[Rfam]
RNA sequence: GUGACAGUUGCUGGAGGCAGCGGUUCAUCGAUCUCUUCCUGAGAAUUUUUUUUUGGAAAGAAAGGAAGAUAAAAAUUAAAAGCAUGAACAGAUCGAUAAACCUCUGCAUCCAGCGGUUUACCU
Numbered sequence: 001g002u003g004a005c006a007g008u009u010g011c012u013g014g015a016g017g018c019a020g021c022g023g024u025u026c027a028u029c030g031a032u033c034u035c036u037u038c039c040u041g042a043g044a045a046u047u048u049u050u051u052u053u054u055g056g057a058a059a060g061a062a063a064g065g066a067a068g069a070u071a072a073a074a075a076u077u078a079a080a081a082g083c084a085u086g087a088a089c090a091g092a093u094c095g096a097u098a099a100a101c102c103u104c105u106g107c108a109u110c111c112a113g114c115g116g117u118u119u120a121c122c123u
Stems, first nucleotide, its partner, number of pairs: 013111003018106003022102004027097007036088003
Description: A member of the RNA family "MIR162_1 microRNA precursor family" from Raphanus sativus, 123 nucleotides long. Pairs were carried over by alignment from the consensus structure, which was predicted with RNAalifold. Taxonomically the source falls in Raphanus (Eukaryota, Viridiplantae, rosids, malvids).